[Rfam]
RNA sequence: CUUUAUGAUGAACCCAUAACCCAAAGCAUAGUUCAACUGAGGCAUUCGUGUCAUUGAACGAAAAAUUACCAUCAUCAAAUUCUGAAC
Dot-bracket structure: .....(.(((....))).)...........(((((.....((((....))))..)))))............................